[Rfam]
RNA sequence: GGAGAUUACAGUUAGGUGAGGCUCCUACAGGGAUAAAUGCUGCUGCCCCGAAACAUGGAGACAUGCCAAUGGGGUCAACAGGUAUGAUCGGAUUAAGGUUUUACUUAACGUAGCUGGCAAAAGCCAAAGCCCUGUAGUGCUAAAACUCAACGAUAUAAUUAUA
Numbered sequence: 001g002g003a004g005a006u007u008a009c010a011g012u013u014a015g016g017u018g019a020g021g022c023u024c025c026u027a028c029a030g031g032g033a034u035a036a037a038u039g040c041u042g043c044u045g046c047c048c049c050g051a052a053a054c055a056u057g058g059a060g061a062c063a064u065g066c067c068a069a070u071g072g073g074g075u076c077a078a079c080a081g082g083u084a085u086g087a088u089c090g091g092a093u094u095a096a097g098g099u100u101u102u103a104c105u106u107a108a109c110g111u112a113g114c115u116g117g118c119a120a121a122a123g124c125c126a127a128a129g130c131c132c133u134g135u136a137g138u139g140c141u142a143a144a145a146c147u148c149a150a151c152g153a154u155a156u157a158a159u160u161a162u163a
Base pairs, nucleotide, nucleotide: 005159006158007157008156010154011151012150013096015147016146017145020141021140022139025137026136027135028134029133030132031131032130039114040113041112042111043110046073047072048071054065055064056063057062081105082104083103084102087099088098089097116125117124118123
RNA: M-box riboswitch aptamer (ykoK leader)